[Rfam]
mraW RNA: a 97-nucleotide RNA sequence from Microbacterium dextranolyticum.

RNA sequence: UUCUGAUCCGUGGCCGUGACUCCCAGCCGCACGCCCUGGCGCACUUCCCCGGUGCCAGGUCAGGCGGAUGGGGAUCUCGGCUCCGGAUCCCGUUCCG
Numbered sequence: 001u002u003c004u005g006a007u008c009c010g011u012g013g014c015c016g017u018g019a020c021u022c023c024c025a026g027c028c029g030c031a032c033g034c035c036c037u038g039g040c041g042c043a044c045u046u047c048c049c050c051g052g053u054g055c056c057a058g059g060u061c062a063g064g065c066g067g068a069u070g071g072g073g074a075u076c077u078c079g080g081c082u083c084c085g086g087a088u089c090c091c092g093u094u095c096c097g
Stems, first nucleotide, its partner, number of pairs: 010084001012082005018076002021073005027067004033061001035059008
The family's consensus secondary structure is taken from published work.
The match comes from Rfam's covariance-model search (65 bits).